RNA sequence: CGACCGCACUCUGGAGAGCUGGCGCCGCACGACCACUGCGGGCGCCCACCGAAGGGGCUCACGAACGGCGCGCACCGCUAUGCGCCCCGCUUCGCAAUCUCUCAGGUACCAAGGACAGAGGGGCCAUC
Numbered sequence: 001c002g003a004c005c006g007c008a009c010u011c012u013g014g015a016g017a018g019c020u021g022g023c024g025c026c027g028c029a030c031g032a033c034c035a036c037u038g039c040g041g042g043c044g045c046c047c048a049c050c051g052a053a054g055g056g057g058c059u060c061a062c063g064a065a066c067g068g069c070g071c072g073c074a075c076c077g078c079u080a081u082g083c084g085c086c087c088c089g090c091u092u093c094g095c096a097a098u099c100u101c102u103c104a105g106g107u108a109c110c111a112a113g114g115a116c117a118g119a120g121g122g123g124c125c126a127u128c
Base pairs, nucleotide, nucleotide: 007122009120010119011118012117013116021046022045023044024043025042026041048107049106050105051103052102055101056100057099062094063093064092065091
The family of this 128-nucleotide RNA from Ralstonia sp. 5_2_56FAA is "Glycine riboswitch aptamer". From the family's description: This family represents the bacterial glycine riboswitch. Glycine riboswitches usually consist of two metabolite-binding aptamers domains with similar structures in tandem. The aptamers cooperatively bind glycine to regulate the expression of downstream genes. In Bacillus subtilis, this riboswitch is found upstream of the gcvT operon which controls glycine degradation. A search with the family's covariance model found it, with a score of 36 bits. The organism belongs to Ralstonia, within Bacteria.